[Rfam]
RNA: Small nucleolar RNA Z279/snoR105/snoR108
RNA sequence: GGGAGAUGAGGAGUGGUACAGGCUCGCCUAAUUUAUGCGAGAGGGGUGCCCGCCCCAACAAGCCUGUUACGACACUGGGGCGUCCCCGUGAUUUACCAUCUGAUCCC
Dot-bracket structure: ((((.........(((((....(((((.........))))).((((((((.............(((.........))))))))))).......))))).....))))